[Rfam]
RNA: Bacterial small subunit ribosomal RNA, nucleotides 929 to 1517
RNA sequence: UGACGGGGACCCGCACAAGCAGUGGAGUAUGUGGUUUAAUUCGAAGCAACGCGAAGAACCUUACCAGGUCUUGACAUCCCUCUGAAUCUGCUAGAGAUAGCAGCGGCCUUCGGGACAGAGGAGACAGGUGGUGCAUGGUUGUCGUCAGCUCGUGUCGUGAGAUGUUGGGUUAAGUCCCGCAACGAGCGCAACCCCUAAACUUAGUUGCCAGCACGUUAAGGUGGGCACUCUAGGUUGACUGCCGGUGACAAACCGGAGGAAGGCGGGGAUGACGUCAAAUCAUCAUGCCCCUUAUGACCUGGGCUACACACGUACUACAAUGGCCGGUACAACGGGCUGCGAAACCGCGAGGUGGAGCCAAUCCCAACAAAGCCGGUCUCAGUUCGGAUUGCAGGCUGCAACUCGCCUGCAUGAAGUCGGAAUUGCUAGUAAUCGCGGAUCAGCAUGCCGCGGUGAAUACGUUCCCGGGUCUUGUACACACCGCCCGUCACACCACGAGAGUUUACAACACCCGAAGUCGGUGGGGUAACCCGCAAGGGAGCCAGCCGCCGAAGGUGGGGUAGAUGAUUGGGGUGAAGUCGUAACAAGG
Number, nucleotide and partner (000 for none) at each position: 001u478002g477003a475004c474005g473006g000007g472008g471009a470010c469011c468012c467013g466014c000015a462016c461017a000018a000019g426020c425021a424022g423023u422024g318025g000026a316027g315028u314029a313030u312031g311032u310033g309034g307035u306036u000037u000038a000039a000040u055041u054042c053043g052044a000045a000046g000047c000048a000049a000050c000051g000052c043053g042054a041055a040056g000057a000058a000059c000060c000061u000062u000063a000064c302065c301066a300067g299068g298069u297070c296071u000072u000073g000074a000075c000076a000077u124078c123079c121080c120081u119082c118083u117084g000085a000086a000087u000088c103089u102090g101091c100092u099093a098094g000095a000096g000097a000098u093099a092100g091101c090102a089103g088104c000105g116106g000107c114108c113109u000110u000111c000112g000113g108114g107115a000116c105117a083118g082119a081120g080121g079122a000123g078124a077125c000126a000127g291128g290129u000130g289131g288132u287133g286134c000135a000136u285137g284138g280139u279140u278141g276142u000143c274144g273145u000146c000147a000148g187149c186150u185151c184152g183153u182154g163155u162156c161157g000158u000159g000160a000161g156162a155163u154164g000165u000166u179167g178168g177169g176170u000171u000172a000173a000174g000175u000176c169177c168178c167179g166180c000181a000182a153183c152184g151185a150186g149187c148188g000189c000190a000191a000192c000193c268194c267195c266196u265197a000198a236199a235200c234201u233202u232203a231204g230205u000206u000207g000208c225209c224210a000211g000212c223213a222214c221215g000216u000217u000218a000219a000220g000221g214222u213223g212224g209225g208226c000227a000228c000229u000230c204231u203232a202233g201234g200235u199236u198237g000238a000239c259240u258241g000242c256243c255244g254245g253246u252247g000248a000249c000250a000251a000252a246253c245254c244255g243256g242257a000258g240259g239260a000261a000262g000263g000264c000265g196266g195267g194268g193269a000270u000271g000272a000273c144274g143275u000276c141277a000278a140279a139280u138281c000282a000283u000284c137285a136286u133287g132288c131289c130290c128291c127292u000293u000294a000295u000296g070297a069298c068299c067300u066301g065302g064303g000304c000305u000306a035307c034308a000309c033310a032311c031312g030313u029314a028315c027316u026317a000318c024319a000320a000321u000322g378323g377324c376325c375326g374327g373328u372329a000330c000331a000332a000333c000334g365335g364336g363337c000338u000339g358340c357341g000342a000343a000344a353345c352346c351347g000348c000349g000350a000351g346352g345353u344354g000355g000356a000357g340358c339359c000360a000361a000362u000363c336364c335365c334366a000367a000368c000369a000370a000371a000372g328373c327374c326375g325376g324377u323378c322379u000380c000381a000382g000383u000384u000385c416386g000387g000388a000389u000390u411391g410392c409393a408394g407395g406396c405397u000398g000399c000400a000401a000402c000403u000404c000405g396406c395407c394408u393409g392410c391411a390412u000413g000414a000415a000416g385417u000418c000419g000420g000421a000422a023423u022424u021425g020426c019427u000428a000429g000430u000431a000432a454433u453434c452435g451436c450437g449438g448439a000440u000441c000442a000443g000444c000445a000446u000447g000448c438449c437450g436451c435452g434453g433454u432455g000456a000457a000458u000459a000460c000461g016462u015463u000464c000465c000466c013467g012468g011469g010470u009471c008472u007473u005474g004475u003476a000477c002478a001479c000480a000481c588482c000483g585484c000485c000486c581487g580488u000489c000490a000491c575492a574493c573494c572495a000496c570497g569498a568499g000500a000501g565502u564503u563504u562505a561506c560507a000508a000509c557510a556511c555512c554513c000514g000515a000516a000517g550518u000519c548520g547521g546522u545523g000524g000525g543526g542527u541528a000529a000530c539531c538532c000533g000534c000535a000536a000537g000538g531539g530540a000541g527542c526543c525544a000545g522546c521547c520548g519549c000550c517551g000552a000553a000554g512555g511556u510557g509558g000559g000560g506561u505562a504563g503564a502565u501566g000567a000568u498569u497570g496571g000572g494573g493574u492575g491576a000577a000578g000579u000580c487581g486582u000583a000584a000585c483586a000587a000588g481589g000